Rfam assigns this 87-nucleotide sequence from Chrysochromulina tobinii to the family "Selenocysteine transfer RNA". It scores 71 bits against the family's covariance model. Pairs were carried over by alignment from the consensus structure, which is taken from published work. NCBI's taxonomy places the organism under Eukaryota, Haptista, Haptophyta, Prymnesiophyceae, Chrysochromulina. Its family is annotated with triplet codon-amino acid adaptor activity in the Gene Ontology.
[Rfam]
RNA sequence: GCCGGGCUGACCCUCAUCGGUAUGGGGUGCAGACUUCAAAUCUGUAGGGGAUCAAAAGUCCCAGGUGUUCGACUCACCCUGACCGGC
Numbered sequence: 001g002c003c004g005g006g007c008u009g010a011c012c013c014u015c016a017u018c019g020g021u022a023u024g025g026g027g028u029g030c031a032g033a034c035u036u037c038a039a040a041u042c043u044g045u046a047g048g049g050g051a052u053c054a055a056a057a058g059u060c061c062c063a064g065g066u067g068u069u070c071g072a073c074u075c076a077c078c079c080u081g082a083c084c085g086g087c
Stems, first nucleotide, its partner, number of pairs: 001087005007081001009079001012027006028046006048062005064078004